The family of this 267-nucleotide RNA sequence from Pseudogymnoascus destructans is "Fungal signal recognition particle RNA". Its Rfam clan is "SRP clan". The organism belongs to Pseudogymnoascus destructans, within Eukaryota.

RNA sequence: CGGCUGUGAUGGUCAUCUGGUAAGGAACUACAUUUGCACUAUCUCACCACUCUGUUCUAUCCCAUCACAUGGUGUCCGGUUCGAACGCUGUGGUGGCCCCCAACUCGUGUCGGUAACGCACGAUUGCUUGUGGGGUCCUAAGCAAUGAAAGACAAUCUUGAGGGAGGUUUCACUCUGCAGAGGAUCUUUCACCGUGGCGUGGCGAGUGGGAUUGCACCAGUAAUGGGUGAGUGGUGAGAAGCGCAUCGGAUGUGGUGACUUAUAUUU
Numbered sequence: 001c002g003g004c005u006g007u008g009a010u011g012g013u014c015a016u017c018u019g020g021u022a023a024g025g026a027a028c029u030a031c032a033u034u035u036g037c038a039c040u041a042u043c044u045c046a047c048c049a050c051u052c053u054g055u056u057c058u059a060u061c062c063c064a065u066c067a068c069a070u071g072g073u074g075u076c077c078g079g080u081u082c083g084a085a086c087g088c089u090g091u092g093g094u095g096g097c098c099c100c101c102a103a104c105u106c107g108u109g110u111c112g113g114u115a116a117c118g119c120a121c122g123a124u125u126g127c128u129u130g131u132g133g134g135g136u137c138c139u140a141a142g143c144a145a146u147g148a149a150a151g152a153c154a155a156u157c158u159u160g161a162g163g164g165a166g167g168u169u170u171c172a173c174u175c176u177g178c179a180g181a182g183g184a185u186c187u188u189u190c191a192c193c194g195u196g197g198c199g200u201g202g203c204g205a206g207u208g209g210g211a212u213u214g215c216a217c218c219a220g221u222a223a224u225g226g227g228u229g230a231g232u233g234g235u236g237a238g239a240a241g242c243g244c245a246u247c248g249g250a251u252g253u254g255g256u257g258a259c260u261u262a263u264a265u266u267u
Stems, first nucleotide, its partner, number of pairs: 002014003020263005027256007035245003039241002042239011055226001063225003070219006076210002079207005085200009095137001097135004101130003105123005111118002138142001146191007156183004164175003
Rfam links the family to the GO terms SRP-dependent cotranslational protein targeting to membrane, signal sequence recognition, signal recognition particle, endoplasmic reticulum targeting and signal recognition particle, plasma membrane targeting. Rfam classes the family as a non-coding RNA gene. A reference for the family is Wild et al. (2002), "Towards the structure of the mammalian signal recognition particle", Curr Opin Struct Biol. The base pairs follow the family's consensus structure, which is taken from published work.